[Rfam]
Nucleotides: 199
Base pairs, nucleotide, nucleotide: 006194008192009191010190011189016080017079018078019077020076021075023073024072032065033064034063035062036061037060038059039058084111085110086109087108088107089106090105091104092103093102094101112138113137115135116134117133118132119131120130121129122128140184141183142182143181144180145179146178147177148176149175150174
Number, partner (000 for none) and nucleotide at each position: 001000a002000u003000g004000u005000c006194u007000u008192g009191u010190a011189g012000a013000g014000g015000c016080g017079c018078a019077u020076c021075g022000u023073c024072u025000a026000u027000c028000a029000g030000u031000a032065g033064u034063u035062c036061g037060a038059a039058u040000u041000a042000g043000g044000g045000u046000g047000a048000c049000c050000c051000c052000c053000a054000g055000a056000g057000a058039g059038u060037u061036c062035g063034a064033a065032u066000c067000a068000a069000a070000g071000g072024a073023g074000c075021c076020g077019a078018u079017g080016c081000c082000g083000a084111a085110g086109u087108g088107g089106u090105u091104c092103g093102g094101g095000c096000g097000u098000c099000a100000u101094c102093c103092c104091g105090g106089a107088u108087u109086g110085c111084u112138g113137g114000g115135g116134c117133u118132g119131c120130a121129u122128u123000c124000a125000a126000u127000a128122g129121g130120u131119g132118c133117a134116g135115c136000a137113c138112u139000g140184c141183c142182a143181u144180a145179g146178u147177a148176a149175a150174u151000c152000c153000c154000u155000a156000a157000a158000g159000g160000a161000g162000u163000u164000g165000g166000g167000g168000a169000a170000u171000a172000a173000a174150a175149u176148u177147u178146a179145c180144u181143g182142u183141g184140g185000a186000g187000c188000g189011c190010u191009a192008c193000u194006g195000a196000a197000g198000g199000a
About this RNA:
Rfam assigns this 199-nucleotide RNA sequence from Ferrimonas aestuarii to the family "Lysine riboswitch aptamer". The organism belongs to Ferrimonas, within Bacteria. The match comes from Rfam's covariance-model search (118 bits).